[Rfam]
The record is a 69-nucleotide RNA sequence from Caenorhabditis nigoni, which matches "mir-234 microRNA precursor family" in Rfam. The organism belongs to Caenorhabditis, within Eukaryota. Rfam 15.1 lists 45 matches to the family in 42 species. For this family Rfam cites "The microRNAs of Caenorhabditis elegans" (Lim et al., Genes Dev, 2003).
RNA sequence: UCAAAAGGUAUUCCUGAGUGAAUAAUACAAAUGUAUUUCUUUCUAUUAUUGCUCGAGAAUACCCUUUGA
Numbered sequence: 001u002c003a004a005a006a007g008g009u010a011u012u013c014c015u016g017a018g019u020g021a022a023u024a025a026u027a028c029a030a031a032u033g034u035a036u037u038u039c040u041u042u043c044u045a046u047u048a049u050u051g052c053u054c055g056a057g058a059a060u061a062c063c064c065u066u067u068g069a
Stems, first nucleotide, its partner, number of pairs: 008062006017053003021050007